[Rfam]
RNA sequence: AUGGACCUGAGGAUACUUUCCCCAAGUUAUCGACUAUGACUAUACAAUGCGCAAAUGUAAUCCCAUGAGGAUUCCAAGCCAGAAAUGUGAUCCAU
Numbered sequence: 001a002u003g004g005a006c007c008u009g010a011g012g013a014u015a016c017u018u019u020c021c022c023c024a025a026g027u028u029a030u031c032g033a034c035u036a037u038g039a040c041u042a043u044a045c046a047a048u049g050c051g052c053a054a055a056u057g058u059a060a061u062c063c064c065a066u067g068a069g070g071a072u073u074c075c076a077a078g079c080c081a082g083a084a085a086u087g088u089g090a091u092c093c094a095u
Base pairs, nucleotide, nucleotide: 001095002094003093004092005091